Description
FMN riboswitch aptamer (RFN element): a 122-nucleotide sequence from [Clostridium] innocuum. The match comes from Rfam's covariance-model search (108 bits).
[Rfam]
RNA sequence: ACAAGUCUUUGUGGCAGGGUGAAAUUCCCUACCGAUGGUAAUAGUCCAUGACCCGCGUAAUGAGCGGCUGAGCCAGCGAAAUUCUGGCACCGACGGUAAAGUCCGGAUGAGAAAAGACAUUU
Numbered sequence: 001a002c003a004a005g006u007c008u009u010u011g012u013g014g015c016a017g018g019g020u021g022a023a024a025u026u027c028c029c030u031a032c033c034g035a036u037g038g039u040a041a042u043a044g045u046c047c048a049u050g051a052c053c054c055g056c057g058u059a060a061u062g063a064g065c066g067g068c069u070g071a072g073c074c075a076g077c078g079a080a081a082u083u084c085u086g087g088c089a090c091c092g093a094c095g096g097u098a099a100a101g102u103c104c105g106g107a108u109g110a111g112a113a114a115a116g117a118c119a120u121u122u
Base pairs, nucleotide, nucleotide: 003120005118006117007116008115009114010113017029018028019027031102032101033092034091035049036048037047038046044090045089053067054066072088073087074086075085076084094105095104096103
The family's consensus secondary structure is taken from published work.